[Rfam]
RNA sequence: GGCGGAGGGAAGCUCAUCGUUGGGGCUACAAGCUGAGUGCAUUACGUCACUCCUCUAACCCAGCCCUUGGGAAGGUCUGAGAUACGGGCCAUUAGCGGCCCCAGCAGGGCUCCUCCCGCAAUUGUGGGGGGGUGAGUUCCCAGAGAAUGGGGCCCGGCUCGGGGGUAGACUGGGCAGGAGAAGCCCAUGCGGUUUCACCCCACGUGGGUGUCCUGGGCGGAUGCCUCCCUCGACUGGGCUUGGAAACGACUCACGGCCAGCGGAGUGAGUGCAAUGGCUGAGGUGGGUUACCUCGUCGAGGGUCCCAUAACCCAAUUCAGACUACUCUCCCACGCC
Numbered sequence: 001g002g003c004g005g006a007g008g009g010a011a012g013c014u015c016a017u018c019g020u021u022g023g024g025g026c027u028a029c030a031a032g033c034u035g036a037g038u039g040c041a042u043u044a045c046g047u048c049a050c051u052c053c054u055c056u057a058a059c060c061c062a063g064c065c066c067u068u069g070g071g072a073a074g075g076u077c078u079g080a081g082a083u084a085c086g087g088g089c090c091a092u093u094a095g096c097g098g099c100c101c102c103a104g105c106a107g108g109g110c111u112c113c114u115c116c117c118g119c120a121a122u123u124g125u126g127g128g129g130g131g132g133u134g135a136g137u138u139c140c141c142a143g144a145g146a147a148u149g150g151g152g153c154c155c156g157g158c159u160c161g162g163g164g165g166u167a168g169a170c171u172g173g174g175c176a177g178g179a180g181a182a183g184c185c186c187a188u189g190c191g192g193u194u195u196c197a198c199c200c201c202a203c204g205u206g207g208g209u210g211u212c213c214u215g216g217g218c219g220g221a222u223g224c225c226u227c228c229c230u231c232g233a234c235u236g237g238g239c240u241u242g243g244a245a246a247c248g249a250c251u252c253a254c255g256g257c258c259a260g261c262g263g264a265g266u267g268a269g270u271g272c273a274a275u276g277g278c279u280g281a282g283g284u285g286g287g288u289u290a291c292c293u294c295g296u297c298g299a300g301g302g303u304c305c306c307a308u309a310a311c312c313c314a315a316u317u318c319a320g321a322c323u324a325c326u327c328u329c330c331c332a333c334g335c336c
Base pairs, nucleotide, nucleotide: 001336002335003334004333008330009329010328013282014281015280016279018277022067023066024065025064035052036051037050038049039048040046077320078319079318080317081316087258088257089256090255097111098110099109100108101107112131113130114129115128116127117126118125119124132254133253134252135251136250137249138248152239153238154237155236156235157234283308284307285306286305287304289302